[Rfam]
RNA sequence: GUAACCGUGAGGUUACAUCUGAAGGCUAUUUGCGAUUGAACAAAGAGCAAAUACAGACUACAAAACCCGGUACUGACGAACAGGAACCGUAUACGGAGGCAUAUUUACUUGGGCAAGCAAACACAUAAUUGUAACGCCCGACGAUUGACAAAAGGGUAAGUAUGUAGAUACGGCAGGGAUCGGGUGAAAGAAGAUGCC
Number, nucleotide and partner (000 for none) at each position: 001g016002u015003a014004a013005c012006c011007g000008u000009g000010a000011g006012g005013u004014u003015a002016c001017a000018u000019c000020u000021g000022a000023a000024g000025g000026c000027u000028a000029u000030u000031u000032g000033c000034g000035a000036u000037u000038g000039a000040a000041c000042a000043a000044a000045g000046a000047g000048c000049a000050a000051a000052u000053a000054c196055a195056g000057a000058c000059u000060a000061c190062a000063a000064a000065a185066c184067c183068c182069g181070g180071u178072a000073c176074u175075g174076a000077c000078g000079a000080a000081c000082a000083g000084g000085a000086a000087c173088c172089g171090u170091a169092u168093a000094c000095g000096g000097a000098g000099g165100c164101a163102u000103a161104u160105u159106u158107a157108c156109u155110u000111g139112g138113g137114c136115a000116a000117g132118c131119a130120a129121a000122c000123a000124c000125a000126u000127a000128a000129u120130u119131g118132u117133a000134a000135c000136g114137c113138c112139c111140g000141a000142c000143g000144a000145u000146u000147g000148a000149c000150a000151a000152a000153a000154g000155g109156g108157u107158a106159a105160g104161u103162a000163u101164g100165u099166a000167g000168a092169u091170a090171c089172g088173g087174c075175a074176g073177g000178g071179a000180u070181c069182g068183g067184g066185u065186g000187a000188a000189a000190g061191a000192a000193g000194a000195u055196g054197c000198c000
Group II catalytic intron D1-D4-3: a 198-nucleotide RNA from Kriegella aquimaris. About the family: Group II introns are found in rRNA, tRNA and mRNA of organelles in fungi, plants and protists, and also in mRNA in bacteria. Taxonomically the source falls in Kriegella (Bacteria, Pseudomonadati, Bacteroidota, Flavobacteriales). Its family is annotated with Group II intron splicing in the Gene Ontology.